[Rfam]
RNA sequence: CAGCGCAGUAGCGACUGGCGCCACGAGGUGGAGCACCACCGGGGAGCGAAACAGGGCAGGGCACCGCGCGCCUGGGUGUCCGCG
Numbered sequence: 001c002a003g004c005g006c007a008g009u010a011g012c013g014a015c016u017g018g019c020g021c022c023a024c025g026a027g028g029u030g031g032a033g034c035a036c037c038a039c040c041g042g043g044g045a046g047c048g049a050a051a052c053a054g055g056g057c058a059g060g061g062c063a064c065c066g067c068g069c070g071c072c073u074g075g076g077u078g079u080c081c082g083c084g
Stems, first nucleotide, its partner, number of pairs: 004054001009049001011047002015043002017072005028039004061079005

Rfam assigns this 84-nucleotide sequence from Prauserella cavernicola to the family "ZMP/ZTP riboswitch aptamer (pfl RNA motif)".
Lineage of the source: Bacteria > Bacillati > Actinomycetota > Actinomycetes > Prauserella.
Rfam 15.1 lists 3,295 matches to the family in 2,545 species.